[Rfam]
RNA sequence: UAAAGCAAGAGGCUUGUUGUACAUGUCAACAAGUCUAAUCGUACAUGUCAGGUAUACUAGUUGUGCAUUGUUUUUGGGUGAACCUCCUCUCUUAUCAUUGUGACUUGAGGUUCAGUAAAUGAUGCUACAUUU
Number, nucleotide and partner (000 for none) at each position: 001u000002a000003a000004a000005g048006c047007a046008a000009g000010a036011g035012g000013c033014u032015u031016g030017u000018u000019g000020u000021a000022c000023a000024u000025g000026u000027c000028a000029a000030c016031a015032a014033g013034u000035c011036u010037a000038a000039u000040c000041g000042u000043a000044c000045a000046u007047g006048u005049c000050a000051g000052g000053u000054a000055u000056a000057c000058u000059a000060g000061u000062u000063g000064u000065g125066c124067a123068u122069u121070g120071u119072u118073u000074u000075u000076g000077g000078g000079u114080g113081a112082a111083c110084c109085u108086c000087c000088u000089c000090u000091c000092u000093u000094a000095u000096c000097a000098u000099u000100g000101u000102g000103a000104c000105u000106u000107g000108a085109g084110g083111u082112u081113c080114a079115g000116u000117a000118a072119a071120u070121g069122a068123u067124g066125c065126u000127a000128c000129a000130u000131u000132u000
Shown here is a 132-nucleotide RNA sequence from Phtheirospermum japonicum, a member of the family "Small nucleolar RNA snoR74". For this family Rfam cites "Experimental RNomics: identification of 140 candidates for small non-messenger RNAs in the plant Arabidopsis thaliana" (Marker et al., Curr Biol, 2002). NCBI's taxonomy places the organism under Eukaryota, Viridiplantae, Streptophytina, Magnoliopsida, Phtheirospermum.